Purine riboswitch aptamer: a 98-nucleotide RNA from Cetobacterium ceti.
[Rfam]
RNA sequence: AAAUUCAAUAGAGCAUAUUAUCAUAUAAGCCGCAAAUAAGGUGUGGCGUCUCUACGACUGACCGUAAAUCAGUAUCUAUGAAAUUCAAGGGGAAUAGU
Numbered sequence: 001a002a003a004u005u006c007a008a009u010a011g012a013g014c015a016u017a018u019u020a021u022c023a024u025a026u027a028a029g030c031c032g033c034a035a036a037u038a039a040g041g042u043g044u045g046g047c048g049u050c051u052c053u054a055c056g057a058c059u060g061a062c063c064g065u066a067a068a069u070c071a072g073u074a075u076c077u078a079u080g081a082a083a084u085u086c087a088a089g090g091g092g093a094a095u096a097g098u
Stems, first nucleotide, its partner, number of pairs: 019083001021081005029047006057073005
The family's consensus secondary structure is taken from published work.